[Rfam]
Nucleotides: 080
Base pairs, nucleotide, nucleotide: 001080002079003078004077005076006075007074008073011028012027013026014025015024019065020064021063030049031043032042033041034040054072055071056070057069058068
Number, partner (000 for none) and nucleotide at each position: 001080g002079g003078u004077u005076a006075u007074u008073a009000a010000g011028g012027u013026g014025g015024g016000a017000a018000a019065g020064g021063u022000u023000c024015c025014c026013c027012a028011c029000g030049c031043g032042c033041u034040c035000a036000c037000g038000a039000u040034g041033a042032g043031u044000u045000a046000c047000c048000a049030g050000a051000g052000a053000u054072c055071c056070u057069g058068g059000a060000u061000a062000c063021g064020c065019c066000g067000c068058c069057c070056a071055g072054g073008u074007a075006a076005u077004a078003a079002c080001c

The record is an 80-nucleotide RNA sequence from Planococcus antarcticus, which matches "skipping-rope RNA" in Rfam. Taxonomically the source falls in Planococcus antarcticus (Bacteria, Bacillati, Caryophanaceae, Planococcus).